[Rfam]
The record is an 84-nucleotide RNA from Povalibacter uvarum, which matches "c-di-GMP-I-GGC riboswitch aptamer" in Rfam. NCBI's taxonomy places the organism under Bacteria, Pseudomonadota, Gammaproteobacteria, Steroidobacteraceae, Povalibacter.

RNA sequence: CAUCGCAAAGGCAAACUCACCGAAAGGUGAGGACGCAAAGCCACCGGUCUACGGGGACUUCCUAGGACAGCGGGGUUGCCAGCG
Numbered sequence: 001c002a003u004c005g006c007a008a009a010g011g012c013a014a015a016c017u018c019a020c021c022g023a024a025a026g027g028u029g030a031g032g033a034c035g036c037a038a039a040g041c042c043a044c045c046g047g048u049c050u051a052c053g054g055g056g057a058c059u060u061c062c063u064a065g066g067a068c069a070g071c072g073g074g075g076u077u078g079c080c081a082g083c084g
Stems, first nucleotide, its partner, number of pairs: 001084001003081001011036002016031006034070001039077004044073003047068003